This 86-nucleotide RNA from Aeromonas hydrophila belongs to the Rfam family "c-di-GMP-I riboswitch aptamer". The match comes from Rfam's covariance-model search (59 bits). On this family, see Weinberg et al., Nucleic Acids Res 2007: "Identification of 22 candidate structured RNAs in bacteria using the CMfinder comparative genomics pipeline". Lineage of the source: Bacteria > Pseudomonadati > Gammaproteobacteria > Aeromonadaceae > Aeromonas hydrophila subsp. hydrophila.
[Rfam]
RNA sequence: CCAGGUAAAGGGCAAACCGGUCGAGAUGCCGGGACGCAAUGCCUCCGGUCUUCAGAUCGUGCGAUCCAGAUAGCGGGGCUUCCCAG
Numbered sequence: 001c002c003a004g005g006u007a008a009a010g011g012g013c014a015a016a017c018c019g020g021u022c023g024a025g026a027u028g029c030c031g032g033g034a035c036g037c038a039a040u041g042c043c044u045c046c047g048g049u050c051u052u053c054a055g056a057u058c059g060u061g062c063g064a065u066c067c068a069g070a071u072a073g074c075g076g077g078g079c080u081u082c083c084c085a086g
Base pairs, nucleotide, nucleotide: 012037013036017032018031019030020029021028041079042078043077045076046075047074048071049070050069055066056065057064058063